Rfam assigns this 122-nucleotide RNA from Populus trichocarpa to the family "MIR480 microRNA precursor family".
Rfam 15.1 lists 3,070 matches to the family in 171 species.
The literature on the family includes a 2005 paper in Plant Cell by Lu et al., "Novel and mechanical stress-responsive MicroRNAs in Populus trichocarpa that are absent from Arabidopsis".
Taxonomically the source falls in Populus (Eukaryota, Streptophyta, Spermatophyta, Saliceae).

RNA sequence: UAAUUUGUUUGGGACAAAUCCUCAUCUAGUUAUAAUAGACUCACACCUGACUGCUUAAAAUCACUAGUUAUUGUAGGAUUGACUACAUCAAAAUUGAUUGGUUUUUUGUUUUCAAAGAGAUU
Numbered sequence: 001u002a003a004u005u006u007g008u009u010u011g012g013g014a015c016a017a018a019u020c021c022u023c024a025u026c027u028a029g030u031u032a033u034a035a036u037a038g039a040c041u042c043a044c045a046c047c048u049g050a051c052u053g054c055u056u057a058a059a060a061u062c063a064c065u066a067g068u069u070a071u072u073g074u075a076g077g078a079u080u081g082a083c084u085a086c087a088u089c090a091a092a093a094u095u096g097a098u099u100g101g102u103u104u105u106u107u108g109u110u111u112u113c114a115a116a117g118a119g120a121u122u
Stems, first nucleotide, its partner, number of pairs: 004120003008115002012111001014109002018105001023101001027096005